mir-124 microRNA precursor family: a 72-nucleotide RNA from Darwinula stevensoni. NCBI's taxonomy places the organism under Eukaryota, Panarthropoda, Mandibulata, Oligostraca, Darwinula. A search with the family's covariance model found it, with a score of 60 bits. Rfam 15.1 lists 2,215 matches to the family in 905 species. Gene Ontology terms of the family: RISC complex and miRNA-mediated post-transcriptional gene silencing.
RNA sequence: UGCUCUUCGUAUUCACUGUUGGCCUUUUGGUCCGUGCAAAAGGCAUAAGGCACGCGGUGAAUGCCAAGAGAC
Numbered sequence: 001u002g003c004u005c006u007u008c009g010u011a012u013u014c015a016c017u018g019u020u021g022g023c024c025u026u027u028u029g030g031u032c033c034g035u036g037c038a039a040a041a042g043g044c045a046u047a048a049g050g051c052a053c054g055c056g057g058u059g060a061a062u063g064c065c066a067a068g069a070g071a072c
Stems, first nucleotide, its partner, number of pairs: 003070004009064008018055002023050004028045002